A member of the RNA family "Plant signal recognition particle RNA" from Striga hermonthica, 306 nucleotides long. Pairs were carried over by alignment from the consensus structure, which is taken from published work. Lineage of the source: Eukaryota > Viridiplantae > Embryophyta > Buchnereae > Striga. By type it is a non-coding RNA gene.
[Rfam]
RNA sequence: GCCGAGCUCAGUAAUGUGAGCUUGUAACCCAAAUGGGGGCAACAAGGUGAUUGGACACUGGGCCUGCCCAGUUAGCUGGGCCAUUCGGUUGCGAUAUCUGGCCCGCCCGUUCCAAGUGGGGAGUUGGGCCGUGCGAUCUAGGCGAAGGCUCUGGUCUCUCGGCCCGUAGAGCGGAGGGCACUGCGUCAGGCUGGCCUCACAGAGCAGCGAGAACCUCCCGCUCUCUACAGUGGAAGGAUAACGGGCCGGUGCUUCCUUGGCCCAAAUAAAGCUGAAUGGGCAGGUCCAAAUUGAACAAUCACUUUU
Numbered sequence: 001g002c003c004g005a006g007c008u009c010a011g012u013a014a015u016g017u018g019a020g021c022u023u024g025u026a027a028c029c030c031a032a033a034u035g036g037g038g039g040c041a042a043c044a045a046g047g048u049g050a051u052u053g054g055a056c057a058c059u060g061g062g063c064c065u066g067c068c069c070a071g072u073u074a075g076c077u078g079g080g081c082c083a084u085u086c087g088g089u090u091g092c093g094a095u096a097u098c099u100g101g102c103c104c105g106c107c108c109g110u111u112c113c114a115a116g117u118g119g120g121g122a123g124u125u126g127g128g129c130c131g132u133g134c135g136a137u138c139u140a141g142g143c144g145a146a147g148g149c150u151c152u153g154g155u156c157u158c159u160c161g162g163c164c165c166g167u168a169g170a171g172c173g174g175a176g177g178g179c180a181c182u183g184c185g186u187c188a189g190g191c192u193g194g195c196c197u198c199a200c201a202g203a204g205c206a207g208c209g210a211g212a213a214c215c216u217c218c219c220g221c222u223c224u225c226u227a228c229a230g231u232g233g234a235a236g237g238a239u240a241a242c243g244g245g246c247c248g249g250u251g252c253u254u255c256c257u258u259g260g261c262c263c264a265a266a267u268a269a270a271g272c273u274g275a276a277u278g279g280g281c282a283g284g285u286c287c288a289a290a291u292u293g294a295a296c297a298a299u300c301a302c303u304u305u306u
Stems, first nucleotide, its partner, number of pairs: 001040003004023007028037003044305010056293002059289001061286006068279003072275006078263006087255001091252003098249008107237002110235005116228009126165006133158001135156004141150003173218005182211001184209003191202003